[Rfam]
RNA sequence: UUUCAUUCUCAGGGCGGGGCGAAAUUCCCCACCGGCGGUUAUAGCCCGCGAGCGCCUUGGUUCUUGUCGCGAGAACCUUGGGUCAGCAGAUACUGGUGAAAUUCCAGAGCCGACGGUCAUAGUCCGGAUGAGAGAGGAUGAAC
Numbered sequence: 001u002u003u004c005a006u007u008c009u010c011a012g013g014g015c016g017g018g019g020c021g022a023a024a025u026u027c028c029c030c031a032c033c034g035g036c037g038g039u040u041a042u043a044g045c046c047c048g049c050g051a052g053c054g055c056c057u058u059g060g061u062u063c064u065u066g067u068c069g070c071g072a073g074a075a076c077c078u079u080g081g082g083u084c085a086g087c088a089g090a091u092a093c094u095g096g097u098g099a100a101a102u103u104c105c106a107g108a109g110c111c112g113a114c115g116g117u118c119a120u121a122g123u124c125c126g127g128a129u130g131a132g133a134g135a136g137g138a139u140g141a142a143c
Stems, first nucleotide, its partner, number of pairs: 003141008017029003031123002033112002035049004044110002052087002091108001093107004114126003